The family of this 91-nucleotide RNA sequence from Ensete ventricosum is "Small nucleolar RNA Z161/Z228". For this family Rfam cites "The high diversity of snoRNAs in plants: identification and comparative study of 120 snoRNA genes from Oryza sativa" (Chen et al., Nucleic Acids Res, 2003). Rfam links the family to the GO terms RNA processing and nucleolus. By type it is a C/D-box small nucleolar RNA.

RNA sequence: AAGCUAGAUGAUGAUAAUGGAUUUUAUCUCACGACGGUCAUCUGAGGUGCUUACAGUAGCUAGGUCGAUACAAAUCCUAUCUCUGAUGGCU
Numbered sequence: 001a002a003g004c005u006a007g008a009u010g011a012u013g014a015u016a017a018u019g020g021a022u023u024u025u026a027u028c029u030c031a032c033g034a035c036g037g038u039c040a041u042c043u044g045a046g047g048u049g050c051u052u053a054c055a056g057u058a059g060c061u062a063g064g065u066c067g068a069u070a071c072a073a074a075u076c077c078u079a080u081c082u083c084u085g086a087u088g089g090c091u
Base pairs, nucleotide, nucleotide: 001091004088048058049057050056